Background
Mammalian CPEB3 ribozyme: a 72-nucleotide RNA sequence from Crocodylus porosus. The family's consensus secondary structure is taken from published work.
[Rfam]
RNA sequence: ACAGGUGUAAGGCCAUAGCAGAAAUGCUCAUGGCACGACCUGUCAGAUUCCAAUGAAUCUGUGAAUUCUGCU
Numbered sequence: 001a002c003a004g005g006u007g008u009a010a011g012g013c014c015a016u017a018g019c020a021g022a023a024a025u026g027c028u029c030a031u032g033g034c035a036c037g038a039c040c041u042g043u044c045a046g047a048u049u050c051c052a053a054u055g056a057a058u059c060u061g062u063g064a065a066u067u068c069u070g071c072u
Base pairs, nucleotide, nucleotide: 011040012039014037017072018071019070020069021068022067023066025035026034044061045060046059047058048057049056050055
Background: About the family: The mammalian CPEB3 ribozyme is a self cleaving RNA located in the second intron of the CPEB3 gene which belongs to a family of genes regulating messenger RNA polyadenylation.